Record summary
The record is a 56-nucleotide RNA sequence from Kamptonema sp. PCC 6506, which matches "Nitrogen stress-induced RNA 1" in Rfam. NCBI's taxonomy places the organism under Bacteria, Cyanobacteriota, Oscillatoriophycideae, Oscillatoriales, Kamptonema.
RNA sequence: CAGUAGAUGCACCCUGAUAGAUGAACCCUAACCAAUUACGGCUAGGGUUUUUUAUU
Numbered sequence: 001c002a003g004u005a006g007a008u009g010c011a012c013c014c015u016g017a018u019a020g021a022u023g024a025a026c027c028c029u030a031a032c033c034a035a036u037u038a039c040g041g042c043u044a045g046g047g048u049u050u051u052u053u054a055u056u
Stems, first nucleotide, its partner, number of pairs: 003012002025048006032041002
It scores 45 bits against the family's covariance model.